The record is a 97-nucleotide RNA sequence from Chlorocebus sabaeus, which matches "Y RNA" in Rfam. Rfam describes the family as follows. Y RNAs are components of the Ro ribonucleoprotein particle (Ro RNP), in association with Ro60 and La proteins.

RNA sequence: GGCUGGUCUGAGUGGUGUUUGCACCUAAUUAAUCACUACCAGUUGCAGAUUUCUUUGUUCCUUCUCCACUCCCACUGCUUCACUUGACUAGCCUAAA
Numbered sequence: 001g002g003c004u005g006g007u008c009u010g011a012g013u014g015g016u017g018u019u020u021g022c023a024c025c026u027a028a029u030u031a032a033u034c035a036c037u038a039c040c041a042g043u044u045g046c047a048g049a050u051u052u053c054u055u056u057g058u059u060c061c062u063u064c065u066c067c068a069c070u071c072c073c074a075c076u077g078c079u080u081c082a083c084u085u086g087a088c089u090a091g092c093c094u095a096a097a
Stems, first nucleotide, its partner, number of pairs: 001093008010085002014081002017075002021071001027059003031055002
The match comes from Rfam's covariance-model search (60 bits).
The organism belongs to Chlorocebus, within Eukaryota.
The literature on the family includes a 2007 paper in Theory Biosci by Mosig et al., "Evolution of the vertebrate Y RNA cluster".
Pairs were carried over by alignment from the consensus structure, which is taken from published work.